RNA sequence: AUACUUACCUGGCAGGGGAGUUACCAUGAUUGCAAAGGUGGUUUUCCCAGAGUGAGGCUUAGCCAUUGGACUCUGGAUCUGCCGACCCCCGUGAUUUCCCCAAAUGUGGGAAACUCGACCGCAUAAUUCGUGGUAGUGGGGGACUGUGUUCGCGUUCUCACCUA
Numbered sequence: 001a002u003a004c005u006u007a008c009c010u011g012g013c014a015g016g017g018g019a020g021u022u023a024c025c026a027u028g029a030u031u032g033c034a035a036a037g038g039u040g041g042u043u044u045u046c047c048c049a050g051a052g053u054g055a056g057g058c059u060u061a062g063c064c065a066u067u068g069g070a071c072u073c074u075g076g077a078u079c080u081g082c083c084g085a086c087c088c089c090c091g092u093g094a095u096u097u098c099c100c101c102a103a104a105u106g107u108g109g110g111a112a113a114c115u116c117g118a119c120c121g122c123a124u125a126a127u128u129c130g131u132g133g134u135a136g137u138g139g140g141g142g143a144c145u146g147u148g149u150u151c152g153c154g155u156u157c158u159c160a161c162c163u164a
Stems, first nucleotide, its partner, number of pairs: 012122002015119001016048005023042005050089001052087001054086001056083003061078001063076002092117003095113003099109002138163003142159002146155003